[Rfam]
RNA: msiK RNA
Organism: Streptomyces sp. ADI97-07
RNA sequence: AGCAGACUCCCUUACUCGGAUCGUCCGGCACGUUCCUGCCGGUGAAGGAGAAGUAU
Numbered sequence: 001a002g003c004a005g006a007c008u009c010c011c012u013u014a015c016u017c018g019g020a021u022c023g024u025c026c027g028g029c030a031c032g033u034u035c036c037u038g039c040c041g042g043u044g045a046a047g048g049a050g051a052a053g054u055a056u
Stems, first nucleotide, its partner, number of pairs: 008049003012045003025042006